Clostridiales-1 RNA: a 166-nucleotide RNA sequence from Eubacterium ventriosum. Taxonomically the source falls in Eubacterium (Bacteria, Bacillota, Clostridia, Eubacteriales). The match comes from Rfam's covariance-model search (90 bits).
[Rfam]
RNA sequence: UAUAAGUAGUAGCAAGGAACAUAUACCUGUGCUUGCACAAAGGUGUCCUGGAAGUUUCGGGGGUGCCUUAUUAUGAGCAUAAAAGGGCGACGAAGUCGCACGAUAUGCGAAUAAUAAGGACAGAUUGCGGGAACGCGAAGCGCGUAGCAAUCUGAGGUGAGUUAUA
Numbered sequence: 001u002a003u004a005a006g007u008a009g010u011a012g013c014a015a016g017g018a019a020c021a022u023a024u025a026c027c028u029g030u031g032c033u034u035g036c037a038c039a040a041a042g043g044u045g046u047c048c049u050g051g052a053a054g055u056u057u058c059g060g061g062g063g064u065g066c067c068u069u070a071u072u073a074u075g076a077g078c079a080u081a082a083a084a085g086g087g088c089g090a091c092g093a094a095g096u097c098g099c100a101c102g103a104u105a106u107g108c109g110a111a112u113a114a115u116a117a118g119g120a121c122a123g124a125u126u127g128c129g130g131g132a133a134c135g136c137g138a139a140g141c142g143c144g145u146a147g148c149a150a151u152c153u154g155a156g157g158u159g160a161g162u163u164a165u166a
Stems, first nucleotide, its partner, number of pairs: 001166005007160001010063001013062001016058005023046005028039004067118008077108004085101001087099005122153007134142003